This 131-nucleotide RNA belongs to the Rfam family "TPP riboswitch aptamer (THI element)". Gene Ontology term of the family: thiamine pyrophosphate binding.
RNA sequence: UUUUGGCACCAGGGGUGCUUGCAUGAUGAAGCAGCGCAAUCUAUUUGCGUCGAUUAUCAAUGCAGGCUGAGAGAGUCCCUUCGCACCUGAACAGGUUAAUACCUGCGUAGGGAGCGUGCCAAAUCCUUCGU
Numbered sequence: 001u002u003u004u005g006g007c008a009c010c011a012g013g014g015g016u017g018c019u020u021g022c023a024u025g026a027u028g029a030a031g032c033a034g035c036g037c038a039a040u041c042u043a044u045u046u047g048c049g050u051c052g053a054u055u056a057u058c059a060a061u062g063c064a065g066g067c068u069g070a071g072a073g074a075g076u077c078c079c080u081u082c083g084c085a086c087c088u089g090a091a092c093a094g095g096u097u098a099a100u101a102c103c104u105g106c107g108u109a110g111g112g113a114g115c116g117u118g119c120c121a122a123a124u125c126c127u128u129c130g131u
Stems, first nucleotide, its partner, number of pairs: 006119004011080004016074001017067008086111004092105004